Shown here is a 119-nucleotide RNA from Clostridium carboxidivorans, a member of the family "FMN riboswitch aptamer (RFN element)".
Pairs were carried over by alignment from the consensus structure, which is taken from published work.
The source organism's lineage runs through Bacteria, Bacillati, Bacillota, Clostridia and Clostridium carboxidivorans.
RNA sequence: AUUAGUCUUCAGGGCGGGGUGAAAUUCCCCACCGGCGGUUAUAGCCCGCGAGCCUUAAAUAGGUAUGAUUCGGUGUAAUUCCGAAGCCGACAGUAAAGUCUGGAUGGAAGAAGAUAAAG
Numbered sequence: 001a002u003u004a005g006u007c008u009u010c011a012g013g014g015c016g017g018g019g020u021g022a023a024a025u026u027c028c029c030c031a032c033c034g035g036c037g038g039u040u041a042u043a044g045c046c047c048g049c050g051a052g053c054c055u056u057a058a059a060u061a062g063g064u065a066u067g068a069u070u071c072g073g074u075g076u077a078a079u080u081c082c083g084a085a086g087c088c089g090a091c092a093g094u095a096a097a098g099u100c101u102g103g104a105u106g107g108a109a110g111a112a113g114a115u116a117a118a119g
Stems, first nucleotide, its partner, number of pairs: 003117001005115006017029003031099002033089002035049004044087002054063001069085005091102003